About this RNA: Shown here is a 135-nucleotide RNA sequence from Nannospalax galili, a member of the family "Small nucleolar RNA SNORA75". The base pairs follow the family's consensus structure, which was predicted with PFOLD. The match comes from Rfam's covariance-model search (102 bits). The family has 6 seed sequences and 414 matches in Rfam 15.1. Rfam describes the family as follows. U23 belongs to the H/ACA class of snoRNAs. snoRNAs bind a number of proteins (including dyskerin, Gar1p and Nop10p in the case of the H/ACA class) to form snoRNP complexes. This class are thought to guide the sites of modification of uridines to pseudouridines by forming direct base pairing interactions with substrate RNAs. Targets include ribosomal and spliceosomal RNAs as well as the Trypanosoma spliced leader RNA (SL RNA) as possibly other, still unknown cellular RNAs. U23 can direct the pseudouridylation of U97 in human 18S rRNA (Bachellerie JP, Ganot, P unpublished data). U23 is encoded within intron 12 of the nucleolin gene in human, mouse, rat chicken, and Xenopus laevis. Gene Ontology terms of the family: RNA processing and nucleolus. The literature on the family includes a 1997 paper in Genes Dev by Ganot et al., "The family of box ACA small nucleolar RNAs is defined by an evolutionarily conserved secondary structure and ubiquitous sequence elements essential for RNA accumulation".
RNA sequence: GUCUUCUCAUUGAGCUCCUUUCUGUCAACUGGUAGCAGAUUAUGGAUUCACAUGAGAAGAAGGGAGAGUUCACAGAACUAGUAUUACCUUACCUUCUGUUUUUACAGUGGUGUCUGGCUAUUGUGUGAGACAUUC
Numbered sequence: 001g002u003c004u005u006c007u008c009a010u011u012g013a014g015c016u017c018c019u020u021u022c023u024g025u026c027a028a029c030u031g032g033u034a035g036c037a038g039a040u041u042a043u044g045g046a047u048u049c050a051c052a053u054g055a056g057a058a059g060a061a062g063g064g065a066g067a068g069u070u071c072a073c074a075g076a077a078c079u080a081g082u083a084u085u086a087c088c089u090u091a092c093c094u095u096c097u098g099u100u101u102u103u104a105c106a107g108u109g110g111u112g113u114c115u116g117g118c119u120a121u122u123g124u125g126u127g128a129g130a131c132a133u134u135c
Base pairs, nucleotide, nucleotide: 003059004058005057006056007055008054014051016046017045018044022038023037024036025035070128071127072126073125074124093110094109096107097106098105